[Rfam]
RNA sequence: AACGUGCCCGGGGUCGGUGAGAAUCCGAACCGGCGGUAAUAGUCCGCGAGCGGCCUGGUUGUCUGCAUGAGCAGAGAGUCGGCGGCUGAUCUGGUGUAAUUCCAGAACCGACGGUCAUGAGGGUGUGGCGCCGAAGGGCGCCCGGCCUUCAGGAGUCCGGAUGAGAGGUGCACGCG
Number, nucleotide and partner (000 for none) at each position: 001a000002a000003c174004g173005u172006g171007c170008c167009c000010g000011g000012g000013g000014u000015c027016g026017g025018u000019g000020a000021g000022a000023a000024u000025c017026c016027g015028a000029a000030c000031c110032g109033g047034c046035g045036g044037u000038a000039a000040u000041a000042g108043u107044c036045c035046g034047c033048g000049a000050g086051c085052g000053g000054c000055c000056u000057g000058g000059u000060u000061g000062u000063c000064u000065g000066c000067a000068u000069g000070a000071g000072c000073a000074g000075a000076g000077a000078g000079u000080c000081g000082g000083c000084g000085g051086c050087u000088g000089a000090u106091c105092u104093g103094g102095u000096g000097u000098a000099a000100u000101u000102c094103c093104a092105g091106a090107a043108c042109c032110g031111a000112c159113g158114g157115u000116c000117a000118u000119g000120a000121g000122g000123g000124u000125g000126u000127g000128g000129c000130g000131c000132c000133g000134a000135a000136g000137g000138g000139c000140g000141c000142c000143c000144g000145g000146c000147c000148u000149u000150c000151a000152g000153g000154a000155g000156u000157c114158c113159g112160g000161a000162u000163g000164a000165g000166a000167g008168g000169u000170g007171c006172a005173c004174g003175c000176g000

Shown here is a 176-nucleotide RNA from Subtercola vilae, a member of the family "FMN riboswitch aptamer (RFN element)". The family's consensus secondary structure is taken from published work. The match comes from Rfam's covariance-model search (74 bits). Taxonomically the source falls in Subtercola (Bacteria, Actinomycetota, Micrococcales, Microbacteriaceae).